[Rfam]
RNA sequence: GCCGCAUGAUGUGAUGUAGAUUGCAUUAGCAUCACUGCAAAGAUGACUGACCAUCUAUCACCCAUUACUGAUGGCU
Number, nucleotide and partner (000 for none) at each position: 001g075002c074003c073004g072005c000006a000007u000008g000009a000010u000011g000012u000013g000014a000015u000016g000017u000018a000019g000020a000021u000022u000023g000024c000025a000026u000027u000028a000029g038030c037031a036032u000033c000034a000035c000036u031037g030038c029039a000040a000041a000042g000043a000044u000045g000046a000047c000048u000049g000050a000051c000052c000053a000054u000055c000056u000057a000058u000059c000060a000061c000062c000063c000064a000065u000066u000067a000068c000069u000070g000071a000072u004073g003074g002075c001076u000